[Rfam]
RNA: c-di-GMP-I riboswitch aptamer
RNA sequence: UCACUGAAAUGGCAUACUUAUUGAAAGGUAAGGGCGCAAAACUACAGACCUAACGGGAUACCUAAGGUGGCUGGGUUACCAAA
Numbered sequence: 001u002c003a004c005u006g007a008a009a010u011g012g013c014a015u016a017c018u019u020a021u022u023g024a025a026a027g028g029u030a031a032g033g034g035c036g037c038a039a040a041a042c043u044a045c046a047g048a049c050c051u052a053a054c055g056g057g058a059u060a061c062c063u064a065a066g067g068u069g070g071c072u073g074g075g076u077u078a079c080c081a082a083a
Base pairs, nucleotide, nucleotide: 012037013036017032018031019030020029021028022027040077041076042075043074045073046072047071048068049067050066055062056061